[Rfam]
The family of this 219-nucleotide RNA from Medicago truncatula is "MIR2655 microRNA precursor family".
RNA sequence: CCCUUAACUAUUAAAAGCUUCGUUUUGGUCCGUUAACUUACUUUUUGGUUUCGUUUUGGUCCCUUAACUCAUCCUCCGUCAACCACUUUGGUCCUUUAUGUUAGGAUGAAUGUAUUAGAGUUAAGGGACCAAAAUGAAACAAAAAAAUAAGUUAAGGGACCAAAACGAAACUAAAAAAUAAGUUAAGGGAUCAAAACGAAACUUUUAAUAGUUAAGGGA
Numbered sequence: 001c002c003c004u005u006a007a008c009u010a011u012u013a014a015a016a017g018c019u020u021c022g023u024u025u026u027g028g029u030c031c032g033u034u035a036a037c038u039u040a041c042u043u044u045u046u047g048g049u050u051u052c053g054u055u056u057u058g059g060u061c062c063c064u065u066a067a068c069u070c071a072u073c074c075u076c077c078g079u080c081a082a083c084c085a086c087u088u089u090g091g092u093c094c095u096u097u098a099u100g101u102u103a104g105g106a107u108g109a110a111u112g113u114a115u116u117a118g119a120g121u122u123a124a125g126g127g128a129c130c131a132a133a134a135u136g137a138a139a140c141a142a143a144a145a146a147a148u149a150a151g152u153u154a155a156g157g158g159a160c161c162a163a164a165a166c167g168a169a170a171c172u173a174a175a176a177a178a179u180a181a182g183u184u185a186a187g188g189g190a191u192c193a194a195a196a197c198g199a200a201a202c203u204u205u206u207a208a209u210a211g212u213u214a215a216g217g218g219a
Stems, first nucleotide, its partner, number of pairs: 002217007023196003027192003031188001033186008042177002045174003
It scores 158 bits against the family's covariance model. The organism belongs to Medicago, within Eukaryota.